[Rfam]
RNA sequence: CGCUUAUUUUGCGACGGCGGAGCUCGACCGCCGGUCCAAGCCAUGAUUGCCUUUAUCGACGAUCAUCGCACGGCGCACGGGGUCGAGCCGAUCUGUAAGGUUCUGCCGAUCGCCCCC
Numbered sequence: 001c002g003c004u005u006a007u008u009u010u011g012c013g014a015c016g017g018c019g020g021a022g023c024u025c026g027a028c029c030g031c032c033g034g035u036c037c038a039a040g041c042c043a044u045g046a047u048u049g050c051c052u053u054u055a056u057c058g059a060c061g062a063u064c065a066u067c068g069c070a071c072g073g074c075g076c077a078c079g080g081g082g083u084c085g086a087g088c089c090g091a092u093c094u095g096u097a098a099g100g101u102u103c104u105g106c107c108g109a110u111c112g113c114c115c116c117c
Stems, first nucleotide, its partner, number of pairs: 016032005079116004089112002092109002095106003
A member of the RNA family "ALIL pseudoknot" from Nitrobacter sp. Nb-311A, 117 nucleotides long.
The literature on the family includes a 2008 paper in J Biol Chem by Mazauric et al., "Apical loop-internal loop RNA pseudoknots: a new type of stimulator of -1 translational frameshifting in bacteria".
A search with the family's covariance model found it, with a score of 107 bits.
The organism belongs to Nitrobacter, within Bacteria.